[Rfam]
RNA sequence: UGUUCCCUGCGGUGUUCGUUUAGACCUAUAUUCUUUGAACCAACUUUUUUAAGAAUCGGUUACGAACCAGAGUGACGCUGUUGUGCGCAUCCUAAUUGGAAGCGCCUGAUGCGUCCGGCUAGUGACCACCUUGGACCUUAAGGUUCAAGAUAAAUGGUCUGACGGCAUCUGCGGGGACUUU
Numbered sequence: 001u002g003u004u005c006c007c008u009g010c011g012g013u014g015u016u017c018g019u020u021u022a023g024a025c026c027u028a029u030a031u032u033c034u035u036u037g038a039a040c041c042a043a044c045u046u047u048u049u050u051a052a053g054a055a056u057c058g059g060u061u062a063c064g065a066a067c068c069a070g071a072g073u074g075a076c077g078c079u080g081u082u083g084u085g086c087g088c089a090u091c092c093u094a095a096u097u098g099g100a101a102g103c104g105c106c107u108g109a110u111g112c113g114u115c116c117g118g119c120u121a122g123u124g125a126c127c128a129c130c131u132u133g134g135a136c137c138u139u140a141a142g143g144u145u146c147a148a149g150a151u152a153a154a155u156g157g158u159c160u161g162a163c164g165g166c167a168u169c170u171g172c173g174g175g176g177a178c179u180u181u
Base pairs, nucleotide, nucleotide: 002179004177005176006175007174008173009172010171011170012168013167014166015165017164018163019162032150033149034148036147037146038145039144040143041142058127059126060125062123063122065120067118074115075114076113077112078111085103086102090099091098
RNA: 6S / SsrS RNA